A member of the RNA family "azaaromatic riboswitch aptamer (yjdF RNA)" from Clostridium beijerinckii, 103 nucleotides long. Pairs were carried over by alignment from the consensus structure, which is taken from published work. Taxonomically the source falls in Clostridium beijerinckii (Bacteria, Bacillati, Clostridia, Clostridiaceae).
RNA sequence: UAUUUAAGAGAUAAAAACACUGUUUCUGUUGGUAGUCAGAACCUAUAUUAUAAUAUAGCAGUAACCUGCCCUCCUGGGGUUGUCCAUUCUCUGUGAAUUUAUA
Numbered sequence: 001u002a003u004u005u006a007a008g009a010g011a012u013a014a015a016a017a018c019a020c021u022g023u024u025u026c027u028g029u030u031g032g033u034a035g036u037c038a039g040a041a042c043c044u045a046u047a048u049u050a051u052a053a054u055a056u057a058g059c060a061g062u063a064a065c066c067u068g069c070c071c072u073c074c075u076g077g078g079g080u081u082g083u084c085c086a087u088u089c090u091c092u093g094u095g096a097a098u099u100u101a102u103a
Stems, first nucleotide, its partner, number of pairs: 004096003007092005022042002025040004043058006068080001070079003